[Rfam]
RNA sequence: CAGGAUGAUGGAGGCGCGGUGCUUUACAAGUAACUUUCGCAGGGAAGGCAACUCAGGAAGUGAAAAGAUUGACCGCCGAAGCGUGGGGAGCUGCCUUGCGAACCAUAGCUGGGACGUUGCAGAAUAUGUAACGUACUGUCACAGCUUGUAUGUGGAGUGCUGUCAUGUAG
Numbered sequence: 001c002a003g004g005a006u007g008a009u010g011g012a013g014g015c016g017c018g019g020u021g022c023u024u025u026a027c028a029a030g031u032a033a034c035u036u037u038c039g040c041a042g043g044g045a046a047g048g049c050a051a052c053u054c055a056g057g058a059a060g061u062g063a064a065a066a067g068a069u070u071g072a073c074c075g076c077c078g079a080a081g082c083g084u085g086g087g088g089a090g091c092u093g094c095c096u097u098g099c100g101a102a103c104c105a106u107a108g109c110u111g112g113g114a115c116g117u118u119g120c121a122g123a124a125u126a127u128g129u130a131a132c133g134u135a136c137u138g139u140c141a142c143a144g145c146u147u148g149u150a151u152g153u154g155g156a157g158u159g160c161u162g163u164c165a166u167g168u169a170g
Base pairs, nucleotide, nucleotide: 006165007164008163009162010161011160016076017075018074019073020072024068033061034060035059036058037057038056080110081109082108083106084105085104086103090099111137112136114134115133116132117131118130119129120128121127139155140154141153142152143151

Source information: Rfam assigns this 170-nucleotide RNA sequence from Ruminococcus sp. CAG:563 to the family "Lysine riboswitch aptamer". The match comes from Rfam's covariance-model search (76 bits). The family's consensus secondary structure is taken from published work. Gene Ontology term of the family: lysine biosynthetic process.